The record is an 85-nucleotide RNA from Desulfosporosinus orientis, which matches "c-di-GMP-I riboswitch aptamer" in Rfam. Pairs were carried over by alignment from the consensus structure, which is taken from published work.
RNA sequence: CUGCGAUAAUGGCAAACCCAGUGAGAGUUGGGGACGCAAAGCCACGGGUCUGACCACAGAAUGUGAAGAUAGCCGGGUUAUCGAA
Numbered sequence: 001c002u003g004c005g006a007u008a009a010u011g012g013c014a015a016a017c018c019c020a021g022u023g024a025g026a027g028u029u030g031g032g033g034a035c036g037c038a039a040a041g042c043c044a045c046g047g048g049u050c051u052g053a054c055c056a057c058a059g060a061a062u063g064u065g066a067a068g069a070u071a072g073c074c075g076g077g078u079u080a081u082c083g084a085a
Stems, first nucleotide, its partner, number of pairs: 012037002017032006040079004045075003048070003055065004